A member of the RNA family "mir-33 microRNA precursor family" from Eleutherodactylus coqui, 73 nucleotides long. The base pairs follow the family's consensus structure, which was predicted with PFOLD.
RNA sequence: AUGUAUUACAUUGCUGAUGCAUUACAUGUAUUGAUAUACACAUAUGAUGUAAUGCAUCAGCAGUGUAAUACAU
Number, nucleotide and partner (000 for none) at each position: 001a073002u072003g071004u070005a000006u000007u067008a066009c065010a064011u063012u062013g061014c060015u059016g058017a000018u000019g055020c000021a053022u052023u051024a050025c049026a048027u047028g000029u000030a000031u000032u000033g000034a000035u000036a000037u000038a000039c000040a000041c000042a000043u000044a000045u000046g000047a027048u026049g025050u024051a023052a022053u021054g000055c019056a000057u000058c016059a015060g014061c013062a012063g011064u010065g009066u008067a007068a000069u000070a004071c003072a002073u001
A search with the family's covariance model found it, with a score of 52 bits.
On this family, see Li et al., BMC Genomics 2009: "Direct sequencing and expression analysis of a large number of miRNAs in Aedes aegypti and a multi-species survey of novel mosquito miRNAs".
The source organism's lineage runs through Eukaryota, Opisthokonta, Deuterostomia, Batrachia and Eleutherodactylus.
The family has 73 seed sequences and 1,467 matches in Rfam 15.1.